Shown here is a 140-nucleotide sequence from Helicobacter mustelae, a member of the family "Bacterial antisense RNA HPnc0260". The organism belongs to Helicobacter mustelae, within Bacteria. On this family, see Sharma et al., Nature 2010: "The primary transcriptome of the major human pathogen Helicobacter pylori". A search with the family's covariance model found it, with a score of 72 bits.
[Rfam]
RNA sequence: AGUUGAAAAAGAGGGGAUUUCAAAAAUUUUGAAAAAGUAUUUGGAAGAUUCCAAGCAUCCAGAGAUUGUGAAAAAUUUAGAAAAAAUAGAGAAAAAAAAGAUGGUGAUCACGACUGGACUUGAACCAGCGACCACUACCA
Numbered sequence: 001a002g003u004u005g006a007a008a009a010a011g012a013g014g015g016g017a018u019u020u021c022a023a024a025a026a027u028u029u030u031g032a033a034a035a036a037g038u039a040u041u042u043g044g045a046a047g048a049u050u051c052c053a054a055g056c057a058u059c060c061a062g063a064g065a066u067u068g069u070g071a072a073a074a075a076u077u078u079a080g081a082a083a084a085a086a087u088a089g090a091g092a093a094a095a096a097a098a099a100g101a102u103g104g105u106g107a108u109c110a111c112g113a114c115u116g117g118a119c120u121u122g123a124a125c126c127a128g129c130g131a132c133c134a135c136u137a138c139c140a
Base pairs, nucleotide, nucleotide: 005021006020007019040063041062042061043060044059045058102137103136104135105134106133111130112129114128115127116126117125